[Rfam]
RNA sequence: UUCAAGUGAUAAUUACCUGAGGUCAACAUUAUAAAUGCUUAAGAUGUAAUUUUACAAUGCCCCCGCAAGCGAGGGCUUGGCCGAGCUUAAUGAGGCCAGGUGCGACGCGGGGGCGACAGCCCGGCCUUAGCGAGGUCCCCUCGGGAGGCGCCUUCCGCGUCACGGAGUGCCGUGACCGGGGGUAACCCUGGCCGGGCACAGGCCCGUCUGGGUUAGCCCGCCCAAUUUUGCCGAGGGCUUAGAUGAGGGCGGGUGUUACGGGCGGGCCACAGAUAA
Numbered sequence: 001u002u003c004a005a006g007u008g009a010u011a012a013u014u015a016c017c018u019g020a021g022g023u024c025a026a027c028a029u030u031a032u033a034a035a036u037g038c039u040u041a042a043g044a045u046g047u048a049a050u051u052u053u054a055c056a057a058u059g060c061c062c063c064c065g066c067a068a069g070c071g072a073g074g075g076c077u078u079g080g081c082c083g084a085g086c087u088u089a090a091u092g093a094g095g096c097c098a099g100g101u102g103c104g105a106c107g108c109g110g111g112g113g114c115g116a117c118a119g120c121c122c123g124g125c126c127u128u129a130g131c132g133a134g135g136u137c138c139c140c141u142c143g144g145g146a147g148g149c150g151c152c153u154u155c156c157g158c159g160u161c162a163c164g165g166a167g168u169g170c171c172g173u174g175a176c177c178g179g180g181g182g183u184a185a186c187c188c189u190g191g192c193c194g195g196g197c198a199c200a201g202g203c204c205c206g207u208c209u210g211g212g213u214u215a216g217c218c219c220g221c222c223c224a225a226u227u228u229u230g231c232c233g234a235g236g237g238c239u240u241a242g243a244u245g246a247g248g249g250c251g252g253g254u255g256u257u258a259c260g261g262g263c264g265g266g267c268c269a270c271a272g273a274u275a276a
Stems, first nucleotide, its partner, number of pairs: 059114008076100007119197008131143005155179002159176007201268010217253007230238003
Shown here is a 276-nucleotide RNA from Pyrococcus horikoshii, a member of the family "HgcG RNA (Pab40)". The source organism's lineage runs through Archaea, Methanobacteriati, Methanobacteriota, Pyrococcus and Pyrococcus horikoshii. Rfam links the family to the GO term RNA processing. The base pairs follow the family's consensus structure, which was predicted with PFOLD. A reference for the family is Klein et al. (2002), "Noncoding RNA genes identified in AT-rich hyperthermophiles", Proc Natl Acad Sci U S A.